[Rfam]
RNA sequence: UUGUGUGUGAGGAGUAAGAGUGAUAUGAAAAGACCUUUGGAGUCGAAACAAGGUAAGACGCCCAAAGGUCUUUCAUUU
Numbered sequence: 001u002u003g004u005g006u007g008u009g010a011g012g013a014g015u016a017a018g019a020g021u022g023a024u025a026u027g028a029a030a031a032g033a034c035c036u037u038u039g040g041a042g043u044c045g046a047a048a049c050a051a052g053g054u055a056a057g058a059c060g061c062c063c064a065a066a067g068g069u070c071u072u073u074c075a076u077u078u
Stems, first nucleotide, its partner, number of pairs: 029073007039063002042059003
Notes: Shown here is a 78-nucleotide RNA from cyanobacterium endosymbiont of Rhopalodia gibberula, a member of the family "Cyano-1 RNA". The family's RNA type in Rfam is small RNA. The source organism's lineage runs through Bacteria, Bacillati and Cyanobacteriota. Pairs were carried over by alignment from the consensus structure, which is taken from published work. A search with the family's covariance model found it, with a score of 53 bits.